Shown here is a 102-nucleotide sequence from Paraglaciecola arctica, a member of the family "TPP riboswitch aptamer (THI element)". A search with the family's covariance model found it, with a score of 71 bits. Its family is annotated with thiamine pyrophosphate binding in the Gene Ontology. Vitamin B(1) in its active form thiamin pyrophosphate (TPP) is an essential coenzyme that is synthesised by coupling of pyrimidine and thiazole moieties in bacteria. The previously detected thiamin-regulatory element, thi box was extended, resulting in a new, highly conserved RNA secondary structure, the THI element, which is widely distributed in eubacteria and also occurs in some archaea. Analysis of operon structures identified a large number of new candidate thiamin-regulated genes, mostly transporters, in various prokaryotic organisms. The THI element is a riboswitch that directly binds to TPP to regulate gene expression through a variety of mechanisms in archaea, bacteria and eukaryotes. through a variety of mechanisms in archaea, bacteria and eukaryotes. Tandem TPP riboswitches have been reported where both TPP riboswitches respond independently to TPP. The structure of TPP riboswitch has been reported for Escherichia coli and Arabidopsis thaliana. NCBI's taxonomy places the organism under Bacteria, Pseudomonadota, Alteromonadaceae, Paraglaciecola, Paraglaciecola arctica.

RNA sequence: GGCUACUUGUCGGAGUGCCCUCGAGGCUGAGACCGUUAUUAUACGGGAUCCGUUGAACCUGAUCAGGCUAACACCUGCGUAGGAAACAAAAGUAACCCAUAG
Numbered sequence: 001g002g003c004u005a006c007u008u009g010u011c012g013g014a015g016u017g018c019c020c021u022c023g024a025g026g027c028u029g030a031g032a033c034c035g036u037u038a039u040u041a042u043a044c045g046g047g048a049u050c051c052g053u054u055g056a057a058c059c060u061g062a063u064c065a066g067g068c069u070a071a072c073a074c075c076u077g078c079g080u081a082g083g084a085a086a087c088a089a090a091a092g093u094a095a096c097c098c099a100u101a102g
Base pairs, nucleotide, nucleotide: 007089008088009087010086011052012051013050014049016046017027018026019025034045035044036043058083059082060081061080064077065076066075067074